[Rfam]
RNA sequence: AUAGACCACUAGGGGAGUCUUUGAUAAAGACUGAGACGUGUAUACAUACACGGACCCUUCGAACCUGAUCUGGAUUAUACCAGCGUAGGGAAGUGGAUUCGCACGUCU
Numbered sequence: 001a002u003a004g005a006c007c008a009c010u011a012g013g014g015g016a017g018u019c020u021u022u023g024a025u026a027a028a029g030a031c032u033g034a035g036a037c038g039u040g041u042a043u044a045c046a047u048a049c050a051c052g053g054a055c056c057c058u059u060c061g062a063a064c065c066u067g068a069u070c071u072g073g074a075u076u077a078u079a080c081c082a083g084c085g086u087a088g089g090g091a092a093g094u095g096g097a098u099u100c101g102c103a104c105g106u107c108u
Stems, first nucleotide, its partner, number of pairs: 006096005011058004017031005038051005064089004070083004
Shown here is a 108-nucleotide RNA sequence from Sporosarcina sp. Te-1, a member of the family "TPP riboswitch aptamer (THI element)". The organism belongs to Sporosarcina, within Bacteria.